The family of this 324-nucleotide part of an RNA from Spirosoma linguale is "Bacterial large subunit ribosomal RNA". Pairs were carried over by alignment from the consensus structure, which is taken from published work. The literature on the family includes a 2001 paper in Science by Yusupov et al., "Crystal structure of the ribosome at 5.5 A resolution". The sequence is in the family's curated seed alignment.
RNA sequence: GAGAAUGAGGAUGAGAACUCCUCACACCGAAAAGCUAAGGUUUCCUCCGCGAUGGCAGUCAUCGGAGGGUUAGUCGGGGUCUAAGGAGCAGGCGAAUGCCGGGAUCUGAGGGGGAGUGGGUUAAUAUUCCCACACUAUCUAUGCAGGAGCACUCAUGACGGAGUGCCGGAGAUUCUAGGUCCUGACGGAAUAGGGCGUUGAGCGGACCCUUCGGGGAAAGCGAAGAGUUGAAGGGGCUUCCAAGAAAAGUGAGUGGUCGUUAAGCGUAUGGAUACCCGUACCGUAAACCGACACAGGUAGCUGGGAAGAAUAUUCUAAGGUGCG
Numbered sequence: 001g002a003g004a005a006u007g008a009g010g011a012u013g014a015g016a017a018c019u020c021c022u023c024a025c026a027c028c029g030a031a032a033a034g035c036u037a038a039g040g041u042u043u044c045c046u047c048c049g050c051g052a053u054g055g056c057a058g059u060c061a062u063c064g065g066a067g068g069g070u071u072a073g074u075c076g077g078g079g080u081c082u083a084a085g086g087a088g089c090a091g092g093c094g095a096a097u098g099c100c101g102g103g104a105u106c107u108g109a110g111g112g113g114g115a116g117u118g119g120g121u122u123a124a125u126a127u128u129c130c131c132a133c134a135c136u137a138u139c140u141a142u143g144c145a146g147g148a149g150c151a152c153u154c155a156u157g158a159c160g161g162a163g164u165g166c167c168g169g170a171g172a173u174u175c176u177a178g179g180u181c182c183u184g185a186c187g188g189a190a191u192a193g194g195g196c197g198u199u200g201a202g203c204g205g206a207c208c209c210u211u212c213g214g215g216g217a218a219a220g221c222g223a224a225g226a227g228u229u230g231a232a233g234g235g236g237c238u239u240c241c242a243a244g245a246a247a248a249g250u251g252a253g254u255g256g257u258c259g260u261u262a263a264g265c266g267u268a269u270g271g272a273u274a275c276c277c278g279u280a281c282c283g284u285a286a287a288c289c290g291a292c293a294c295a296g297g298u299a300g301c302u303g304g305g306a307a308g309a310a311u312a313u314u315c316u317a318a319g320g321u322g323c324g
Stems, first nucleotide, its partner, number of pairs: 006024006025322004033302004039282002044068006053061002075278004080112002085107003089103001091100003116133005136274009147258002151254006160240004166235002171229005177198001179196004199218001203213004288297002304316004
Dot-bracket structure: .....((((((.......))))))((((....((((..((...((((((...((.....)).))))))......((((.((...(((.(.(((....)))..).)))...))...(((((........)))))..(((((((((..((..((((((...((((..((...(((((.(.((((..........)))).)(...((((...))))....)......)))))....)).))))........))))))..)).......)))))))))))))..)).....((......)).)))).((((.....))))..))))..